The record is an 87-nucleotide sequence from Thermosipho sp. 1063, which matches "Selenocysteine transfer RNA" in Rfam.
Rfam 15.1 lists 4,211 matches to the family in 3,344 species.
Lineage of the source: Bacteria > Thermotogati > Thermotogae > Fervidobacteriaceae > Thermosipho.
The match comes from Rfam's covariance-model search (55 bits).
The family is grouped with related families in Rfam's "tRNA clan".
RNA sequence: GGAGGCGUGUUCCGAAUUGGCUAAGGGGCCGGUCUUGAAAACCGGUGGGGGUUACACCCCCGUGUGGGUUCGAGUCCCACCGCCUCC
Numbered sequence: 001g002g003a004g005g006c007g008u009g010u011u012c013c014g015a016a017u018u019g020g021c022u023a024a025g026g027g028g029c030c031g032g033u034c035u036u037g038a039a040a041a042c043c044g045g046u047g048g049g050g051g052u053u054a055c056a057c058c059c060c061c062g063u064g065u066g067g068g069u070u071c072g073a074g075u076c077c078c079a080c081c082g083c084c085u086c087c
Stems, first nucleotide, its partner, number of pairs: 001087007009080001012027002028046006048061004065079004